[Rfam]
RNA sequence: UUACGUAGAGAUAAAAACACAGUUUCGGUUGGUAGUCCGAACGCAUCUAAAAAGAAGAUGUCAGUAACCUUCCCCCUCGGGUCGUCCGUUCUCUAUGCAUUGAUU
Numbered sequence: 001u002u003a004c005g006u007a008g009a010g011a012u013a014a015a016a017a018c019a020c021a022g023u024u025u026c027g028g029u030u031g032g033u034a035g036u037c038c039g040a041a042c043g044c045a046u047c048u049a050a051a052a053a054g055a056a057g058a059u060g061u062c063a064g065u066a067a068c069c070u071u072c073c074c075c076c077u078c079g080g081g082u083c084g085u086c087c088g089u090u091c092u093c094u095a096u097g098c099a100u101u102g103a104u105u
Base pairs, nucleotide, nucleotide: 004097005096006095007094008093009092010091011090022042023041025040026039027038028037043061044060045059046058047057048056072081073080074079
RNA: azaaromatic riboswitch aptamer (yjdF RNA)